[Rfam]
RNA sequence: GUAUAAAAAUGGCAAAACCGUCCGAAAGGCGGUGACGCAAAGCCACGAGUCUACGUUCCCAGCCAAUGAACCAGGGGAGGGGAAUAUGAUCGUCGGGUUGCCUGC
Numbered sequence: 001g002u003a004u005a006a007a008a009a010u011g012g013c014a015a016a017a018c019c020g021u022c023c024g025a026a027a028g029g030c031g032g033u034g035a036c037g038c039a040a041a042g043c044c045a046c047g048a049g050u051c052u053a054c055g056u057u058c059c060c061a062g063c064c065a066a067u068g069a070a071c072c073a074g075g076g077g078a079g080g081g082g083a084a085u086a087u088g089a090u091c092g093u094c095g096g097g098u099u100g101c102c103u104g105c
Base pairs, nucleotide, nucleotide: 012038013037017033018032019031020030022029023028041099042098043097044096046095047094048093049090050089051088056084057083058082059081

This 105-nucleotide RNA sequence from Anoxynatronum buryatiense belongs to the Rfam family "c-di-GMP-I riboswitch aptamer". GEMM was predicted in a large-scale screen for bacterial structured RNA regulatory elements. It scores 67 bits against the family's covariance model.